[Rfam]
Nucleotides: 116
Base pairs, nucleotide, nucleotide: 001115002114003113004112041062043060044059045058046057047056048055
Number, partner (000 for none) and nucleotide at each position: 001115u002114g003113c004112c005000u006000g007000u008000g009000a010000u011000g012000a013000g014000u015000u016000g017000c018000c019000a020000u021000g022000c023000u024000a025000a026000u027000a028000c029000u030000g031000a032000c033000g034000u035000a036000u037000c038000a039000g040000u041062c042000a043060g044059g045058g046057a047056g048055g049000a050000c051000u052000u053000a054000g055048u056047c057046u058045u059044c060043c061000c062041g063000c064000a065000u066000u067000g068000g069000a070000u071000g072000c073000g074000a075000g076000u077000g078000a079000g080000u081000u082000g083000a084000a085000u086000u087000c088000a089000a090000c091000u092000u093000c094000a095000g096000u097000u098000g099000c100000u101000g102000u103000g104000a105000a106000a107000c108000c109000u110000g111000a112004g113003g114002c115001a116000g